RNA sequence: GCCGGUCCUCGGUAGUGGCCCCCGGGAGCCGAGACGAACCGACACGGCGUCCCGAGGGCUUCGAUCGAAGGCCGGC
Numbered sequence: 001g002c003c004g005g006u007c008c009u010c011g012g013u014a015g016u017g018g019c020c021c022c023c024g025g026g027a028g029c030c031g032a033g034a035c036g037a038a039c040c041g042a043c044a045c046g047g048c049g050u051c052c053c054g055a056g057g058g059c060u061u062c063g064a065u066c067g068a069a070g071g072c073c074g075g076c
Stems, first nucleotide, its partner, number of pairs: 001076007009068005017060005023054005028048004
Dot-bracket structure: (((((((.(((((...(((((.(((((((((.............)))).))))).)))))...))))).)))))))